[Rfam]
RNA: Small nucleolar RNA SNORD17
RNA sequence: GUGAGGUGAUGACAAAGUUUAUCCAUUCUCUGAGUGCGGUGGUGCUGCCCUCCUGCAGCACCCAGAUUCCUGUUCUAGGGUCUGGGUGUUGUGCAGCCUCCACAGACUCUCCAGUCUCCCAGUGUCCUACUGGGGGCUGUUGUGGUGUGUGGCUGGCUGCCUGCAGGAGUGAAGUGGUUGCCAGGAGGGUUGGAGCCCCUCUUUUGUGGGGGGCUCCAACCCCACUGAGAUGAGGGAUGAUGUCUGAUCAC
Number, nucleotide and partner (000 for none) at each position: 001g000002u000003g000004a000005g000006g000007u000008g000009a000010u250011g249012a248013c000014a000015a000016a000017g243018u242019u000020u240021a000022u000023c236024c235025a000026u234027u233028c232029u000030c229031u228032g000033a000034g225035u224036g000037c000038g182039g181040u180041g179042g000043u176044g175045c174046u173047g000048c000049c171050c169051u168052c167053c166054u165055g000056c163057a162058g000059c088060a087061c086062c085063c084064a083065g082066a000067u000068u080069c079070c078071u077072g000073u000074u000075c000076u000077a071078g070079g069080g068081u000082c065083u064084g063085g062086g061087u060088g059089u000090u000091g000092u000093g160094c159095a158096g157097c156098c155099u000100c000101c000102a000103c000104a000105g000106a146107c145108u000109c000110u000111c000112c139113a138114g137115u136116c135117u000118c134119c133120c132121a131122g130123u129124g128125u000126c000127c000128u124129a123130c122131u121132g120133g119134g118135g116136g115137c114138u113139g112140u000141u000142g000143u000144g000145g107146u106147g000148u000149g000150u000151g000152g000153c000154u000155g098156g097157c096158u095159g094160c093161c000162u057163g056164c000165a054166g053167g052168a051169g050170u000171g049172a000173a046174g045175u044176g043177g000178u000179u041180g040181c039182c038183a000184g223185g222186a000187g000188g000189g220190u219191u218192g217193g216194a215195g000196c213197c212198c211199c210200u209201c208202u000203u000204u000205u000206g000207u000208g201209g200210g199211g198212g197213g196214c000215u194216c193217c192218a191219a190220c189221c000222c185223c184224a035225c034226u000227g000228a031229g030230a000231u000232g028233a027234g026235g024236g023237a000238u000239g000240a020241u000242g018243u017244c000245u000246g000247a000248u012249c011250a010251c000